RNA sequence: CCAAUGUUAAUCUCGUACUUGGGGCGCACAAACUGAGUGCUUGUCACUCUAUUCGCCCCGGGAAGGUCUGAGUAAAGGUCUCUGUGUUUUAAAACAUUCUAGCCGGAUGCUUUCCUCAAAGGAAGGGUGGGGGAACCAGAAAUGACAGUGUAAUGUGAAGCUGAUGAAGCCUGGCCUGUGAGGCUAGGUGGAGGUGUGCACACUGCCACUGUUGGAAACCCCUGUGACCAGCAAUUUUAGCACAAUCUACGAGAUGACCAUGUGUCACAACUCAAUUCAGACUAGUCUUUCAUUGG
Numbered sequence: 001c002c003a004a005u006g007u008u009a010a011u012c013u014c015g016u017a018c019u020u021g022g023g024g025c026g027c028a029c030a031a032a033c034u035g036a037g038u039g040c041u042u043g044u045c046a047c048u049c050u051a052u053u054c055g056c057c058c059c060g061g062g063a064a065g066g067u068c069u070g071a072g073u074a075a076a077g078g079u080c081u082c083u084g085u086g087u088u089u090u091a092a093a094a095c096a097u098u099c100u101a102g103c104c105g106g107a108u109g110c111u112u113u114c115c116u117c118a119a120a121g122g123a124a125g126g127g128u129g130g131g132g133g134a135a136c137c138a139g140a141a142a143u144g145a146c147a148g149u150g151u152a153a154u155g156u157g158a159a160g161c162u163g164a165u166g167a168a169g170c171c172u173g174g175c176c177u178g179u180g181a182g183g184c185u186a187g188g189u190g191g192a193g194g195u196g197u198g199c200a201c202a203c204u205g206c207c208a209c210u211g212u213u214g215g216a217a218a219c220c221c222c223u224g225u226g227a228c229c230a231g232c233a234a235u236u237u238u239a240g241c242a243c244a245a246u247c248u249a250c251g252a253g254a255u256g257a258c259c260a261u262g263u264g265u266c267a268c269a270a271c272u273c274a275a276u277u278c279a280g281a282c283u284a285g286u287c288u289u290u291c292a293u294u295g296g
Stems, first nucleotide, its partner, number of pairs: 001296004009288001012253006021059005035049005068280005077229004095109005110126006127225007146211003255267004

Nuclear RNase P: a 296-nucleotide RNA sequence from Trichoplusia ni. Lineage of the source: Eukaryota > Panarthropoda > Glossata > Noctuidae > Trichoplusia. It is annotated as a ribozyme. Rfam's curators write: Ribonuclease P (RNase P) is a ubiquitous endoribonuclease, found in archaea, bacteria and eukarya as well as chloroplasts and mitochondria. Its best characterised activity is the generation of mature 5'-ends of tRNAs by cleaving the 5'-leader elements of precursor-tRNAs. Cellular RNase Ps are ribonucleoproteins.